[Rfam]
RNA sequence: CCCUUAUCUUUUAAAAGUUUCAAGUUGGUCUCUUAUCUUUUUUUUAGGUUUCAAGUUGGUCCCGUCCGUCAAAUUUUGUACUGUUACCGUUAAAUUUAGACACGUGUCAACUGUCCAAGUGUGCCACGUGUCAAAUUAGAUUGCCACGUGUCCAAAUUUAACGGAAAUUGUUAAAAAAUUGACGGAAGGGACCAACUCGAAACCUAAAAUAAAGAUAAGGGACCAACUUGAAACUUUUAAAAGAUAAGGGA
Number, nucleotide and partner (000 for none) at each position: 001c000002c249003c248004u247005u246006a245007u244008c243009u000010u000011u000012u000013a000014a000015a000016a000017g000018u000019u000020u000021c000022a000023a228024g227025u226026u000027g224028g223029u222030c000031u220032c219033u218034u217035a216036u215037c214038u213039u212040u211041u000042u209043u208044u000045u206046a205047g204048g000049u000050u000051u000052c000053a000054a000055g000056u000057u000058g000059g000060u000061c000062c000063c000064g000065u000066c000067c000068g000069u000070c000071a000072a000073a000074u000075u000076u000077u000078g000079u000080a000081c000082u000083g000084u000085u000086a000087c000088c000089g000090u000091u000092a000093a000094a000095u000096u000097u000098a000099g000100a000101c000102a000103c000104g000105u000106g000107u000108c000109a000110a000111c000112u000113g000114u000115c000116c000117a000118a000119g000120u000121g000122u000123g000124c000125c000126a000127c000128g000129u000130g000131u000132c000133a000134a000135a000136u000137u000138a000139g000140a000141u000142u000143g000144c000145c000146a000147c000148g000149u000150g000151u000152c000153c000154a000155a000156a000157u000158u000159u000160a000161a000162c000163g000164g000165a000166a000167a000168u000169u000170g000171u000172u000173a000174a000175a000176a000177a000178a000179u000180u000181g000182a000183c000184g000185g000186a000187a000188g000189g000190g000191a000192c000193c000194a000195a000196c000197u000198c000199g000200a000201a000202a000203c000204c047205u046206a045207a000208a043209a042210u000211a040212a039213a038214g037215a036216u035217a034218a033219g032220g031221g000222a029223c028224c027225a000226a025227c024228u023229u000230g000231a000232a000233a000234c000235u000236u000237u000238u000239a000240a000241a000242a000243g008244a007245u006246a005247a004248g003249g002250g000251a000
The record is a 251-nucleotide RNA sequence from Trifolium subterraneum, which matches "MIR2655 microRNA precursor family" in Rfam. NCBI's taxonomy places the organism under Eukaryota, Euphyllophyta, Pentapetalae, fabids, Trifolium.